Source information: Shown here is a 102-nucleotide RNA from Ceratodon purpureus, a member of the family "Small nucleolar RNA Z266". By type it is a C/D-box small nucleolar RNA. The match comes from Rfam's covariance-model search (50 bits). Rfam links the family to the GO terms nucleolus and RNA processing.
[Rfam]
RNA sequence: GGUCUGCAGGAAUGAGGACUUCAAUUAGAUGUGCGAGGCGGUUAUGCCGUCGGUGAUCUUACAAAAUUGAGGCAUAAUCCAUUCUUAACUGACCUGCAGCUU
Numbered sequence: 001g002g003u004c005u006g007c008a009g010g011a012a013u014g015a016g017g018a019c020u021u022c023a024a025u026u027a028g029a030u031g032u033g034c035g036a037g038g039c040g041g042u043u044a045u046g047c048c049g050u051c052g053g054u055g056a057u058c059u060u061a062c063a064a065a066a067u068u069g070a071g072g073c074a075u076a077a078u079c080c081a082u083u084c085u086u087a088a089c090u091g092a093c094c095u096g097c098a099g100c101u102u
Stems, first nucleotide, its partner, number of pairs: 001102002004099007
Dot-bracket structure: ((.(((((((..................................................................................))))))).))